[Rfam]
RNA sequence: GCUGAGGCCUUUCAAAGGCUUGGCAUUUCGGGCGCCGGCGGGUGUCCGGCGCUCUCACGUCCAUGUUGCUCAUUGGAGGAUAUGGUAAUGAGAU
Numbered sequence: 001g002c003u004g005a006g007g008c009c010u011u012u013c014a015a016a017g018g019c020u021u022g023g024c025a026u027u028u029c030g031g032g033c034g035c036c037g038g039c040g041g042g043u044g045u046c047c048g049g050c051g052c053u054c055u056c057a058c059g060u061c062c063a064u065g066u067u068g069c070u071c072a073u074u075g076g077a078g079g080a081u082a083u084g085g086u087a088a089u090g091a092g093a094u
Stems, first nucleotide, its partner, number of pairs: 001024006008018002031053008054092004061085007069078003